[Rfam]
RNA sequence: UACGGCCAUAUUGUCCUGUCACAGCAGUACGAUCUUACUACUGCUGCGCCCGGACAAGCCGGUCGUG
Dot-bracket structure: ..((((.....(((((.(...((((((((.........))))))))...).))))).....))))..
RNA: mir-1000 microRNA precursor family
Organism: Arctia plantaginis